A member of the RNA family "mir-9198 microRNA precursor family" from Myotis myotis, 79 nucleotides long. Its family is annotated with miRNA-mediated post-transcriptional gene silencing and RISC complex in the Gene Ontology. The base pairs follow the family's consensus structure, which was predicted with RNAalifold. It scores 93 bits against the family's covariance model.
RNA sequence: GCCACCGCUCACACCCGCUGCUGGUGCCUGGCGCCGGUCCCCAUCACUUGGUGCCAUCAGUGGGUGUGAGUGGUGGCUG
Numbered sequence: 001g002c003c004a005c006c007g008c009u010c011a012c013a014c015c016c017g018c019u020g021c022u023g024g025u026g027c028c029u030g031g032c033g034c035c036g037g038u039c040c041c042c043a044u045c046a047c048u049u050g051g052u053g054c055c056a057u058c059a060g061u062g063g064g065u066g067u068g069a070g071u072g073g074u075g076g077c078u079g
Stems, first nucleotide, its partner, number of pairs: 004074017022056007
Dot-bracket structure: ...(((((((((((((((((.(((((((.....................))))))).))))))))))))))))).....